[Rfam]
RNA sequence: UAGAACUUAUAGCUCUUUUAGAAUUUAUCUAGCAGGCCUUCAGGUCUCUACCCGAAGGACGCCACU
Numbered sequence: 001u002a003g004a005a006c007u008u009a010u011a012g013c014u015c016u017u018u019u020a021g022a023a024u025u026u027a028u029c030u031a032g033c034a035g036g037c038c039u040u041c042a043g044g045u046c047u048c049u050a051c052c053c054g055a056a057g058g059a060c061g062c063c064a065c066u
Stems, first nucleotide, its partner, number of pairs: 035063003038057004043052003
RNA: U7 small nuclear RNA
Organism: Otolemur garnettii